Shown here is a 275-nucleotide RNA sequence from Nannospalax galili, a member of the family "Mason-Pfizer monkey virus packaging signal".
The family has 9 seed sequences and 2,921 matches in Rfam 15.1.
A reference for the family is Mustafa et al. (2004), "Mutational analysis of the predicted secondary RNA structure of the Mason-Pfizer monkey virus packaging signal", Virus Res.
The base pairs follow the family's consensus structure, which was predicted with PFOLD.
This family represents a group of sequences that are related to the Mason-Pfizer monkey virus (MPMV) packaging signal.
The source organism's lineage runs through Eukaryota, Chordata, Euteleostomi, Myomorpha and Nannospalax.
RNA sequence: UGGCCUCCUGCAGAGUGGCCUGGAUACUGGGGACAACGUGAGGGUCCGAUGACGGAGGAAAAAGGGGUGCACACCUGCUCAAAUAAUUCAGAGAUGCCGCAGGAGCCUGCCGCGACCGAGCCGAAGGUAAGUUGGUCAUUUAAUCAUGGGGCAAGAAUUAAGUCAGCAUCAGAUUUAUUUGAUACAGUUAAGAGAAGCUCUACAGGCAAGAGGAGUAAAGGUUAAAACUAAGGAUUUAUUUCAUUUCUUUGAUUUUGUAAAGGACCUUUGUCCAU
Numbered sequence: 001u002g003g004c005c006u007c008c009u010g011c012a013g014a015g016u017g018g019c020c021u022g023g024a025u026a027c028u029g030g031g032g033a034c035a036a037c038g039u040g041a042g043g044g045u046c047c048g049a050u051g052a053c054g055g056a057g058g059a060a061a062a063a064g065g066g067g068u069g070c071a072c073a074c075c076u077g078c079u080c081a082a083a084u085a086a087u088u089c090a091g092a093g094a095u096g097c098c099g100c101a102g103g104a105g106c107c108u109g110c111c112g113c114g115a116c117c118g119a120g121c122c123g124a125a126g127g128u129a130a131g132u133u134g135g136u137c138a139u140u141u142a143a144u145c146a147u148g149g150g151g152c153a154a155g156a157a158u159u160a161a162g163u164c165a166g167c168a169u170c171a172g173a174u175u176u177a178u179u180u181g182a183u184a185c186a187g188u189u190a191a192g193a194g195a196a197g198c199u200c201u202a203c204a205g206g207c208a209a210g211a212g213g214a215g216u217a218a219a220g221g222u223u224a225a226a227a228c229u230a231a232g233g234a235u236u237u238a239u240u241u242c243a244u245u246u247c248u249u250u251g252a253u254u255u256u257g258u259a260a261a262g263g264a265c266c267u268u269u270g271u272c273c274a275u
Base pairs, nucleotide, nucleotide: 006032007031008030015027016026017025037051038050039049085128087126088124089123095118096117098114099113100112102110137151139150140149141148142147159202160201162198163197210250211249212248213247214246215245219237220236221235222234223233260275262273263272264271265270